Shown here is a 100-nucleotide RNA sequence, a member of the family "L4-Archaeoglobi ribosomal protein leades".
By type it is a cis-regulatory leader.
The sequence is in the family's curated seed alignment.
RNA sequence: CUGAAGGCCGCGUUCGGGUCACUUGCGGACUGCAACACCCGAUCUCGCUCCUCGUCCCCCCCGAGAUGGCGGUCGAGGAGGGAGAGCGCGUCACCAUCAG
Numbered sequence: 001c002u003g004a005a006g007g008c009c010g011c012g013u014u015c016g017g018g019u020c021a022c023u024u025g026c027g028g029a030c031u032g033c034a035a036c037a038c039c040c041g042a043u044c045u046c047g048c049u050c051c052u053c054g055u056c057c058c059c060c061c062c063g064a065g066a067u068g069g070c071g072g073u074c075g076a077g078g079a080g081g082g083a084g085a086g087c088g089c090g091u092c093a094c095c096a097u098c099a100g
Base pairs, nucleotide, nucleotide: 001100002099003098004097009090010089011088012087013086015041016040017039018038023035024034025033026032027031043085044084045083046082048080049079050078051077052076053075